[Rfam]
RNA sequence: UUCUUAUCCAGAGAGGUGGAGGGACUGGCCCUUUGAAGCCCGGCAACCACCCGAUCGUAUCUCGAAGAUAUGGUUGGGACGGUGCCAAUUCCUGCAGGAUCUACGUGAUCUUGGGAGAUGAGAG
Numbered sequence: 001u002u003c004u005u006a007u008c009c010a011g012a013g014a015g016g017u018g019g020a021g022g023g024a025c026u027g028g029c030c031c032u033u034u035g036a037a038g039c040c041c042g043g044c045a046a047c048c049a050c051c052c053g054a055u056c057g058u059a060u061c062u063c064g065a066a067g068a069u070a071u072g073g074u075u076g077g078g079a080c081g082g083u084g085c086c087a088a089u090u091c092c093u094g095c096a097g098g099a100u101c102u103a104c105g106u107g108a109u110c111u112u113g114g115g116a117g118a119u120g121a122g123a124g
Stems, first nucleotide, its partner, number of pairs: 001124008013041001015040003021031003025094001027092002042086004047082002050078011090116001095113006
Dot-bracket structure: ((((((((....(.(((...(((.[.[[)))......))))((((.((.(((((((((((.......)))))))))))..))))))...(]].]((((((.......))))))..)))))))))
A member of the RNA family "SAM riboswitch aptamer (S box leader)" from Pontibacillus marinus, 124 nucleotides long. The match comes from Rfam's covariance-model search (86 bits).